[Rfam]
RNA sequence: AGAGCAUCAGUGAUGUAUGACUUCUUAUUGUUAUCCUUGCACUUUGAUUGCCAGUGAAGAAAAUUAUGGGGAAGAUUCAAGUCUGAGAUGCUC
Number, nucleotide and partner (000 for none) at each position: 001a000002g093003a092004g091005c090006a089007u088008c087009a000010g000011u000012g000013a000014u000015g000016u000017a000018u000019g000020a000021c000022u000023u000024c000025u000026u000027a000028u000029u000030g000031u000032u000033a000034u000035c000036c000037u000038u000039g000040c000041a000042c000043u000044u000045u000046g000047a000048u000049u000050g000051c000052c000053a000054g000055u000056g000057a000058a000059g000060a000061a000062a000063a000064u000065u000066a000067u000068g000069g000070g000071g000072a000073a000074g000075a000076u000077u000078c000079a000080a000081g000082u000083c000084u000085g000086a000087g008088a007089u006090g005091c004092u003093c002